[Rfam]
Overview: The record is a 45-nucleotide RNA from Mycobacterium ulcerans, which matches "Mycobacterium sRNA Ms_AS-5" in Rfam. The sequence is in the family's curated seed alignment. The family's RNA type in Rfam is small RNA. Taxonomically the source falls in Mycobacterium ulcerans (Bacteria, Bacillati, Actinomycetota, Mycobacteriales).
RNA sequence: GUCGGGGUACUGGCCGGUGAAGAUCGUCGGGCGACUCGGCACACA
Numbered sequence: 001g002u003c004g005g006g007g008u009a010c011u012g013g014c015c016g017g018u019g020a021a022g023a024u025c026g027u028c029g030g031g032c033g034a035c036u037c038g039g040c041a042c043a044c045a
Base pairs, nucleotide, nucleotide: 012032014030015029016028017027018026
Dot-bracket structure: ...........(.(((((.......))))).).............